[Rfam]
RNA sequence: AUCGUCCUCAUUUGUAAAUCGCUUUGGAUAAAAGCAUCUGCUAAAUGACAAAGU
Numbered sequence: 001a002u003c004g005u006c007c008u009c010a011u012u013u014g015u016a017a018a019u020c021g022c023u024u025u026g027g028a029u030a031a032a033a034g035c036a037u038c039u040g041c042u043a044a045a046u047g048a049c050a051a052a053g054u
Stems, first nucleotide, its partner, number of pairs: 013043001014041003021035005
Background
The family of this 54-nucleotide sequence from Sinocyclocheilus grahami is "UnaL2 LINE 3' element". Lineage of the source: Eukaryota > Opisthokonta > Vertebrata > Otophysi > Sinocyclocheilus. A search with the family's covariance model found it, with a score of 58 bits. Pairs were carried over by alignment from the consensus structure, which is taken from published work. Rfam classes the family as a cis-regulatory element.